[Rfam]
Nucleotides: 102
Base pairs, nucleotide, nucleotide: 004099005098006097007096008095038074039073040072041071045067047065050062051061
Number, partner (000 for none) and nucleotide at each position: 001000u002000g003000u004099g005098g006097u007096g008095c009000g010000g011000u012000g013000a014000u015000g016000a017000a018000g019000u020000c021000u022000u023000u024000a025000a026000u027000u028000a029000g030000g031000a032000c033000u034000a035000g036000a037000g038074u039073u040072u041071c042000u043000g044000a045067u046000c047065u048000c049000u050062g051061g052000g053000u054000u055000u056000u057000u058000a059000c060000a061051c062050c063000c064000a065047g066000a067045a068000g069000u070000u071041g072040a073039a074038g075000a076000c077000u078000a079000a080000c081000c082000c083000u084000u085000g086000g087000c088000u089000g090000u091000c092000u093000g094000a095008g096007c097006a098005c099004c100000u101000a102000u

The family of this 102-nucleotide sequence from Thalictrum thalictroides is "Small nucleolar RNA Z157/R69/R10".
Pairs were carried over by alignment from the consensus structure, which was predicted with PFOLD.
The family has 10 seed sequences and 836 matches in Rfam 15.1.